[Rfam]
RNA sequence: CUUGAGCGAACCCAGCCACAGCGGCCGCCGCCUGCCCUGGCCGUAGGUGGCGAUCAGCGCCCGCGCCUC
Numbered sequence: 001c002u003u004g005a006g007c008g009a010a011c012c013c014a015g016c017c018a019c020a021g022c023g024g025c026c027g028c029c030g031c032c033u034g035c036c037c038u039g040g041c042c043g044u045a046g047g048u049g050g051c052g053a054u055c056a057g058c059g060c061c062c063g064c065g066c067c068u069c
Stems, first nucleotide, its partner, number of pairs: 015025003029065003032059001038053001041050003
This 69-nucleotide sequence belongs to the Rfam family "ASpks TB sRNA". A search with the family's covariance model found it, with a score of 64 bits. The family's consensus secondary structure is taken from published work. Rfam 15.1 lists 9,052 matches to the family in 683 species.